[Rfam]
RNA sequence: ACGGCACACGGGCUAAGGGCCACAUCAGGUGUUUCUUUUGGUGAUACGCAAUAUUCCAGCGUCUAUCACCGGGAAUACAUCUGUGGUGGCCCGAACGCCUACC
Numbered sequence: 001a002c003g004g005c006a007c008a009c010g011g012g013c014u015a016a017g018g019g020c021c022a023c024a025u026c027a028g029g030u031g032u033u034u035c036u037u038u039u040g041g042u043g044a045u046a047c048g049c050a051a052u053a054u055u056c057c058a059g060c061g062u063c064u065a066u067c068a069c070c071g072g073g074a075a076u077a078c079a080u081c082u083g084u085g086g087u088g089g090c091c092c093g094a095a096c097g098c099c100u101a102c103c
Base pairs, nucleotide, nucleotide: 017092018091019090020089021088022087026083027082028081029080030079031078032077034075036073037072039071041069042068043067044066045065046064
This 103-nucleotide RNA sequence from Caenorhabditis bovis belongs to the Rfam family "mir-36 microRNA precursor family". Its family is annotated with RISC complex and miRNA-mediated post-transcriptional gene silencing in the Gene Ontology. Clan: mir-36 clan. Rfam 15.1 lists 199 matches to the family in 31 species. The source organism's lineage runs through Eukaryota, Opisthokonta, Protostomia, Chromadorea and Caenorhabditis.